[Rfam]
RNA sequence: GUCCGUUCAUCCAUUUUAUGGACGCAUGAAACCACAUCAUGGAACGGGGGUGUGGU
Numbered sequence: 001g002u003c004c005g006u007u008c009a010u011c012c013a014u015u016u017u018a019u020g021g022a023c024g025c026a027u028g029a030a031a032c033c034a035c036a037u038c039a040u041g042g043a044a045c046g047g048g049g050g051u052g053u054g055g056u
Stems, first nucleotide, its partner, number of pairs: 004046005010022005031056006037049002
RNA: Glutamine-II riboswitch aptamer